RNA sequence: AGCCCAAAUUAGAAGUAGAGUAGAUUAGAAGGAUCAUCUGACCCUACUAAGCUACUCCACUACGAGUUUGUGCCC
Numbered sequence: 001a002g003c004c005c006a007a008a009u010u011a012g013a014a015g016u017a018g019a020g021u022a023g024a025u026u027a028g029a030a031g032g033a034u035c036a037u038c039u040g041a042c043c044c045u046a047c048u049a050a051g052c053u054a055c056u057c058c059a060c061u062a063c064g065a066g067u068u069u070g071u072g073c074c075c
Stems, first nucleotide, its partner, number of pairs: 002073002005070005012063001014061003018057006025050004030045001032043001034041002

Notes: A member of the RNA family "mir-5928 microRNA precursor family" from Haemonchus placei, 75 nucleotides long. Its family is annotated with RISC complex and miRNA-mediated post-transcriptional gene silencing in the Gene Ontology. Rfam 15.1 lists 1,672 matches to the family in 12 species.